[Rfam]
RNA: 6S / SsrS RNA
Nucleotides: 157
Base pairs, nucleotide, nucleotide: 002155003154004153005152006151007150008149009148010147011146012144015141017140018139019138032124033123034122035121037119038118040116041115042114056101057100058099060097061096062095063094064093069090070089071088072087073086074085075084076083077082
Number, partner (000 for none) and nucleotide at each position: 001000u002155g003154c004153g005152g006151u007150c008149u009148g010147c011146g012144c013000u014000u015141c016000u017140c018139g019138a020000c021000a022000g023000g024000a025000a026000c027000a028000a029000c030000a031000u032124u033123c034122c035121c036000c037119g038118g039000g040116g041115c042114c043000a044000u045000a046000c047000g048000c049000g050000a051000u052000c053000c054000a055000a056101g057100g058099g059000a060097g061096c062095u063094g064093u065000c066000c067000c068000u069090g070089a071088c072087u073086g074085g075084a076083c077082c078000c079000g080000u081000g082077g083076g084075u085074u086073c087072g088071g089070u090069u091000a092000u093064a094063c095062g096061g097060c098000a099058c100057c101056c102000a103000c104000c105000u106000a107000c108000u109000u110000u111000g112000u113000a114042g115041g116040u117000a118038c119037c120000c121035g122034g123033g124032a125000u126000c127000g128000u129000a130000a131000a132000a133000c134000u135000c136000c137000a138019u139018c140017g141015g142000u143000c144012g145000c146011c147010g148009u149008g150007g151006a152005u153004c154003g155002c156000a157000c